[Rfam]
RNA sequence: CGUAUGGUGUCUGACAAAAGUUGAUCAGAUAGCGAUACGGCCUAACGAGGU
Numbered sequence: 001c002g003u004a005u006g007g008u009g010u011c012u013g014a015c016a017a018a019a020g021u022u023g024a025u026c027a028g029a030u031a032g033c034g035a036u037a038c039g040g041c042c043u044a045a046c047g048a049g050g051u
Stems, first nucleotide, its partner, number of pairs: 001039005007033002011028004015023001